The family of this 132-nucleotide RNA from Otolemur garnettii is "Small nucleolar RNA SNORA9". The family has 36 seed sequences and 1,202 matches in Rfam 15.1. It is one of the family's seed sequences. Its Rfam clan is "SNORA9 clan". From the family's description: ACA9 is a member of the H/ACA class of snoRNA that guide the sites of modification of uridines to pseudouridines. The family's consensus secondary structure was predicted with PFOLD.
RNA sequence: UAGCAAGCCUCCAGCACGCUUGGGUCUGUGGUGACCUGUGUAUUCCUACAGCGCUGGCUAGAACAGCUCUGAAGCAGUUUGAGGCCUUGCCCUGCCCUACCCAGAGCAAGGUUAUAGAAAUUUCUGACAAUC
Numbered sequence: 001u002a003g004c005a006a007g008c009c010u011c012c013a014g015c016a017c018g019c020u021u022g023g024g025u026c027u028g029u030g031g032u033g034a035c036c037u038g039u040g041u042a043u044u045c046c047u048a049c050a051g052c053g054c055u056g057g058c059u060a061g062a063a064c065a066g067c068u069c070u071g072a073a074g075c076a077g078u079u080u081g082a083g084g085c086c087u088u089g090c091c092c093u094g095c096c097c098u099a100c101c102c103a104g105a106g107c108a109a110g111g112u113u114a115u116a117g118a119a120a121u122u123u124c125u126g127a128c129a130a131u132c
Base pairs, nucleotide, nucleotide: 003058004057006055007054008053018041019040023036024035025034026033071124072123073122074121085111086110087109088108089107090106092104093103094102